[Rfam]
RNA sequence: GUGCCGUGCUAAUGAUGAAGCCUGUGUUGGUAGGGACAUCUGAGAGUGCUGAUGAAUGCCAACGGCUCUGAGGGCGGCGC
Numbered sequence: 001g002u003g004c005c006g007u008g009c010u011a012a013u014g015a016u017g018a019a020g021c022c023u024g025u026g027u028u029g030g031u032a033g034g035g036a037c038a039u040c041u042g043a044g045a046g047u048g049c050u051g052a053u054g055a056a057u058g059c060c061a062a063c064g065g066c067u068c069u070g071a072g073g074g075c076g077g078c079g080c
Base pairs, nucleotide, nucleotide: 001080002079003078004077005076

Background: The family of this 80-nucleotide RNA from Octodon degus is "Small nucleolar RNA SNORD74". Rfam 15.1 lists 929 matches to the family in 615 species. Gene Ontology terms of the family: nucleolus and RNA processing. On this family, see Smith and Steitz, Mol Cell Biol 1998: "Classification of gas5 as a multi-small-nucleolar-RNA (snoRNA) host gene and a member of the 5'-terminal oligopyrimidine gene family reveals common features of snoRNA host genes".